[Rfam]
RNA sequence: CCUCAGAUUACCCUGAAUUCUGAUGUGUGCUUGACAGUCAUUAGAGCUCUAGCACCAUUUGAAUUCAGUUCAUCUGAAG
Numbered sequence: 001c002c003u004c005a006g007a008u009u010a011c012c013c014u015g016a017a018u019u020c021u022g023a024u025g026u027g028u029g030c031u032u033g034a035c036a037g038u039c040a041u042u043a044g045a046g047c048u049c050u051a052g053c054a055c056c057a058u059u060u061g062a063a064u065u066c067a068g069u070u071c072a073u074c075u076g077a078a079g
Stems, first nucleotide, its partner, number of pairs: 013068008022059001024057002027055002030052002033049002035046001
RNA: mir-83 microRNA precursor family
Organism: Trichuris suis